[Rfam]
RNA: Fluoride riboswitch aptamer (crcB RNA motif)
Organism: Lichenibacterium minor
RNA sequence: GAGACAUCAGGCGAUGGAGUCCGCCUUCGACCGCCCCCAGGGCUGAUGACACCUGCACGACA
Dot-bracket structure: .........((((..[[.[[[)))).......(((.....)))....]]].]].........